Rfam assigns this 139-nucleotide RNA sequence from Herpetotheres cachinnans to the family "Small nucleolar RNA SNORA75". It scores 86 bits against the family's covariance model. Rfam classes the family as an H/ACA-box small nucleolar RNA.
RNA sequence: CGCUUCUCAAUGAGCUCCUUCCUGCCAACAAAUCCGUGGCAGCCUAUGGAUUCGCACGAGAAGAAUAUUAACUGUUCAGUACUGGCAAACUCACAAUGGGCUUCCAUCGAUUGUGAUUAGCCGCUGCUGUUCGACAAGU
Numbered sequence: 001c002g003c004u005u006c007u008c009a010a011u012g013a014g015c016u017c018c019u020u021c022c023u024g025c026c027a028a029c030a031a032a033u034c035c036g037u038g039g040c041a042g043c044c045u046a047u048g049g050a051u052u053c054g055c056a057c058g059a060g061a062a063g064a065a066u067a068u069u070a071a072c073u074g075u076u077c078a079g080u081a082c083u084g085g086c087a088a089a090c091u092c093a094c095a096a097u098g099g100g101c102u103u104c105c106a107u108c109g110a111u112u113g114u115g116a117u118u119a120g121c122c123g124c125u126g127c128u129g130u131u132c133g134a135c136a137a138g139u
Stems, first nucleotide, its partner, number of pairs: 003063006014055002016050003022042005074132001077129003094109001096107004